The record is a 134-nucleotide RNA sequence from Plasmodium falciparum, which matches "small nucleolar RNA snoR15" in Rfam. Rfam links the family to the GO terms RNA processing and nucleolus. Rfam classes the family as a C/D-box small nucleolar RNA. On this family, see Chakrabarti et al., RNA 2007: "Structural RNAs of known and unknown function identified in malaria parasites by comparative genomics and RNA analysis". Rfam's curators put it in the seed alignment. The base pairs follow the family's consensus structure, which is taken from published work.
[Rfam]
RNA sequence: CUCAUAUGAUGAGGAAAUUAAACGGCGAUAUUGUACUUUCAUUAUCCCUACUUCUUAAUCUCUGAAAGUAUGUAUAUAAAAAUAAUGAAAGUGAAUGAGGGCCAAAAAAAUGAGUAGUUCUCAAUCUGAUAAAA
Numbered sequence: 001c002u003c004a005u006a007u008g009a010u011g012a013g014g015a016a017a018u019u020a021a022a023c024g025g026c027g028a029u030a031u032u033g034u035a036c037u038u039u040c041a042u043u044a045u046c047c048c049u050a051c052u053u054c055u056u057a058a059u060c061u062c063u064g065a066a067a068g069u070a071u072g073u074a075u076a077u078a079a080a081a082a083u084a085a086u087g088a089a090a091g092u093g094a095a096u097g098a099g100g101g102c103c104a105a106a107a108a109a110a111u112g113a114g115u116a117g118u119u120c121u122c123a124a125u126c127u128g129a130u131a132a133a134a
Stems, first nucleotide, its partner, number of pairs: 004130001011126001026099001029093004037082003043076003047072001049070005055064001